[Rfam]
RNA sequence: AUCAUUAUUUGACAAUGAGAGAGAGCACGCUUGUUGGUAGACAUUCAAUGAGAUAUGGCUGCAUACAAGCGUGCUCUAUCUCAUUGUCAUAUGAUU
Numbered sequence: 001a002u003c004a005u006u007a008u009u010u011g012a013c014a015a016u017g018a019g020a021g022a023g024a025g026c027a028c029g030c031u032u033g034u035u036g037g038u039a040g041a042c043a044u045u046c047a048a049u050g051a052g053a054u055a056u057g058g059c060u061g062c063a064u065a066c067a068a069g070c071g072u073g074c075u076c077u078a079u080c081u082c083a084u085u086g087u088c089a090u091a092u093g094a095u096u
Stems, first nucleotide, its partner, number of pairs: 010089005016083002020079001023076001025074010
Record summary
The record is a 96-nucleotide RNA from Acer saccharum, which matches "MIR535 microRNA precursor family" in Rfam. A reference for the family is Zeng et al. (2010), "Conservation and divergence of microRNAs and their functions in Euphorbiaceous plants", Nucleic Acids Res. Rfam links the family to the GO terms RISC complex and miRNA-mediated post-transcriptional gene silencing. Taxonomically the source falls in Acer (Eukaryota, Streptophytina, Spermatophyta, Gunneridae).